The family of this 333-nucleotide RNA sequence from Nothobranchius furzeri is "Vertebrate telomerase RNA". Rfam describes the family as follows. Telomerase is a ribonucleoprotein reverse transcriptase that synthesises telomeric DNA. Telomerase RNAs differ greatly in sequence and structure between vertebrates, ciliates and yeasts, but they share a 5' pseudoknot structure close to the template sequence. Vertebrate telomerase RNAs have a 3' H/ACA snoRNA-like domain. The literature on the family includes a 2000 paper in Cell by Chen et al., "Secondary structure of vertebrate telomerase RNA". Taxonomically the source falls in Nothobranchius (Eukaryota, Euteleosteomorpha, Ctenosquamata, Acanthomorphata). Its Rfam clan is "Telomerase clan".
RNA sequence: AUUCGCGGGGUGGUUUUAACCCUAACCAGCGACUCACCUCCUGUACUUCACGUUUGCUGUUUUCUUGUUUCUGGCUUUCAGCUAACUACAGGAGGUCUCGGAGGGCGUACCGGUUAAACAAAAAAGCCAGAAAUGUCACCCCGUCAAUCUCAGAGCCGUGUCGGGAGACUCUGAGUCUCCUGCCGUGGUCGGCUUGGCUGCCACGAAGAGUCCGUCUCUGCCGUUCCGGAGUUCUCUGCUGGGAACCUCCGAAUCUGAGUAGAUUAAAUAUGAGCGAGGUGACCCUGUCGGACCUGCUGUGGUUCGUUCAGGAAAACCUAUGCUCAAACACCC
Numbered sequence: 001a002u003u004c005g006c007g008g009g010g011u012g013g014u015u016u017u018a019a020c021c022c023u024a025a026c027c028a029g030c031g032a033c034u035c036a037c038c039u040c041c042u043g044u045a046c047u048u049c050a051c052g053u054u055u056g057c058u059g060u061u062u063u064c065u066u067g068u069u070u071c072u073g074g075c076u077u078u079c080a081g082c083u084a085a086c087u088a089c090a091g092g093a094g095g096u097c098u099c100g101g102a103g104g105g106c107g108u109a110c111c112g113g114u115u116a117a118a119c120a121a122a123a124a125a126g127c128c129a130g131a132a133a134u135g136u137c138a139c140c141c142c143g144u145c146a147a148u149c150u151c152a153g154a155g156c157c158g159u160g161u162c163g164g165g166a167g168a169c170u171c172u173g174a175g176u177c178u179c180c181u182g183c184c185g186u187g188g189u190c191g192g193c194u195u196g197g198c199u200g201c202c203a204c205g206a207a208g209a210g211u212c213c214g215u216c217u218c219u220g221c222c223g224u225u226c227c228g229g230a231g232u233u234c235u236c237u238g239c240u241g242g243g244a245a246c247c248u249c250c251g252a253a254u255c256u257g258a259g260u261a262g263a264u265u266a267a268a269u270a271u272g273a274g275c276g277a278g279g280u281g282a283c284c285c286u287g288u289c290g291g292a293c294c295u296g297c298u299g300u301g302g303u304u305c306g307u308u309c310a311g312g313a314a315a316a317c318c319u320a321u322g323c324u325c326a327a328a329c330a331c332c333c
Stems, first nucleotide, its partner, number of pairs: 005144009037095005052086003056082004070131006076124003149259006162241003166237003169231005184205005190200004207219004272325004277319004284312004291304004